[Rfam]
The record is a 76-nucleotide RNA sequence from Baryphthengus martii, which matches "Small nucleolar RNA SNORD19" in Rfam. Rfam 15.1 lists 1,431 matches to the family in 609 species. For this family Rfam cites "RNomics: an experimental approach that identifies 201 candidates for novel, small, non-messenger RNAs in mouse" (Huttenhofer et al., EMBO J, 2001). Rfam links the family to the GO terms RNA processing and nucleolus. The match comes from Rfam's covariance-model search (49 bits). Its Rfam clan is "SNORD19 clan".
RNA sequence: GAGCUAUGAAGAAGAUUUUAAAGGAAUCUGAGAUUCCACUGGAGACAUGAGAUCCAACUCUGAGCUCUGAUCUACU
Numbered sequence: 001g002a003g004c005u006a007u008g009a010a011g012a013a014g015a016u017u018u019u020a021a022a023g024g025a026a027u028c029u030g031a032g033a034u035u036c037c038a039c040u041g042g043a044g045a046c047a048u049g050a051g052a053u054c055c056a057a058c059u060c061u062g063a064g065c066u067c068u069g070a071u072c073u074a075c076u
Stems, first nucleotide, its partner, number of pairs: 001067004